Notes
This 409-nucleotide part of an RNA from Tetrahymena pyriformis belongs to the Rfam family "Eukaryotic large subunit ribosomal RNA". Pairs were carried over by alignment from the consensus structure, which is taken from published work. It is one of the family's seed sequences. NCBI's taxonomy places the organism under Eukaryota, Sar, Oligohymenophorea, Tetrahymenidae, Tetrahymena. Clan: LSU clan.
[Rfam]
RNA sequence: UACACCUGAUACAAGCAAGAUUACCCGCUGAACUUAAGCAUAUCAGUAAGCGGAGGAAAAGAAACUAACUAGGAUAGCCCCAGUAAUGGCGAAUGAACAGGCUAAAGCUCAAAGUGAAAAUCUGGAAACAGAAUUGUAAUCUAAAGAGUUAACCCAAAGCUAAGCUCCUCGCAUAAGUUCCUUGGAACAGGACGUCAAAGAGGGUGACAACCCCGUAGUCGGUGAGGAAUGCUGGUGAAGGGAAGGCUUCAAAGAGUCGGGUUGUUUGGGAUUGCAGCCCUAAGUGGGAGAUAAACUUCUUCUAAAGCUAAAUAUACACGGGAGACCGAUAGCGAACAAGUACUGCGAAGGAAAGAUGAAAAGAACUUUGAAAAGAGGGUUAAAAGACUUGAAACCGUUGAGAAGGAAG
Numbered sequence: 001u002a003c004a005c006c007u008g009a010u011a012c013a014a015g016c017a018a019g020a021u022u023a024c025c026c027g028c029u030g031a032a033c034u035u036a037a038g039c040a041u042a043u044c045a046g047u048a049a050g051c052g053g054a055g056g057a058a059a060a061g062a063a064a065c066u067a068a069c070u071a072g073g074a075u076a077g078c079c080c081c082a083g084u085a086a087u088g089g090c091g092a093a094u095g096a097a098c099a100g101g102c103u104a105a106a107g108c109u110c111a112a113a114g115u116g117a118a119a120a121u122c123u124g125g126a127a128a129c130a131g132a133a134u135u136g137u138a139a140u141c142u143a144a145a146g147a148g149u150u151a152a153c154c155c156a157a158a159g160c161u162a163a164g165c166u167c168c169u170c171g172c173a174u175a176a177g178u179u180c181c182u183u184g185g186a187a188c189a190g191g192a193c194g195u196c197a198a199a200g201a202g203g204g205u206g207a208c209a210a211c212c213c214c215g216u217a218g219u220c221g222g223u224g225a226g227g228a229a230u231g232c233u234g235g236u237g238a239a240g241g242g243a244a245g246g247c248u249u250c251a252a253a254g255a256g257u258c259g260g261g262u263u264g265u266u267u268g269g270g271a272u273u274g275c276a277g278c279c280c281u282a283a284g285u286g287g288g289a290g291a292u293a294a295a296c297u298u299c300u301u302c303u304a305a306a307g308c309u310a311a312a313u314a315u316a317c318a319c320g321g322g323a324g325a326c327c328g329a330u331a332g333c334g335a336a337c338a339a340g341u342a343c344u345g346c347g348a349a350g351g352a353a354a355g356a357u358g359a360a361a362a363g364a365a366c367u368u369u370g371a372a373a374a375g376a377g378g379g380u381u382a383a384a385a386g387a388c389u390u391g392a393a394a395c396c397g398u399u400g401a402g403a404a405g406g407a408a409g
Stems, first nucleotide, its partner, number of pairs: 024055001025053005035042002065072002076103004086094002106309004113140001115138002118135002121132004146250002148247003153242003158233003167227006177193001179192004196200001203213002259280007286303005343350002366377004